[Rfam]
RNA sequence: UGUCUCCUCCAUGUCUCCAAACAUGGCUUUGGCCCGCUCCAGCAGCGGGCUUUUUUAU
Numbered sequence: 001u002g003u004c005u006c007c008u009c010c011a012u013g014u015c016u017c018c019a020a021a022c023a024u025g026g027c028u029u030u031g032g033c034c035c036g037c038u039c040c041a042g043c044a045g046c047g048g049g050c051u052u053u054u055u056u057a058u
Stems, first nucleotide, its partner, number of pairs: 009026006031051008